[Rfam]
RNA: Small nucleolar RNA U109
RNA sequence: UGGCAUGCCGCACGGCGUUCUGCUUCUCUUUAAAGAGCAUGGAUUUAUCUGUGCCAUGUGACGCGAAUGAAAUGAGAAGUUUCCGGGGCCGCCAGCCUCUUGGUGAAGGUUUCCUGGUAGUAUAUUUCCUCUACAAUA
Numbered sequence: 001u002g003g004c005a006u007g008c009c010g011c012a013c014g015g016c017g018u019u020c021u022g023c024u025u026c027u028c029u030u031u032a033a034a035g036a037g038c039a040u041g042g043a044u045u046u047a048u049c050u051g052u053g054c055c056a057u058g059u060g061a062c063g064c065g066a067a068u069g070a071a072a073u074g075a076g077a078a079g080u081u082u083c084c085g086g087g088g089c090c091g092c093c094a095g096c097c098u099c100u101u102g103g104u105g106a107a108g109g110u111u112u113c114c115u116g117g118u119a120g121u122a123u124a125u126u127u128c129c130u131c132u133a134c135a136a137u138a
Stems, first nucleotide, its partner, number of pairs: 003059005016041003020037002076131002079128001088118002094111005